[Rfam]
RNA sequence: UGGGCUGGUCGUUAGACCCGGGUCCACACCAAGGCGGGUAAGACACCC
Numbered sequence: 001u002g003g004g005c006u007g008g009u010c011g012u013u014a015g016a017c018c019c020g021g022g023u024c025c026a027c028a029c030c031a032a033g034g035c036g037g038g039u040a041a042g043a044c045a046c047c048c
Base pairs, nucleotide, nucleotide: 001026002025003024004023005022006021007018008017009016010015
RNA: DUF3800-XI RNA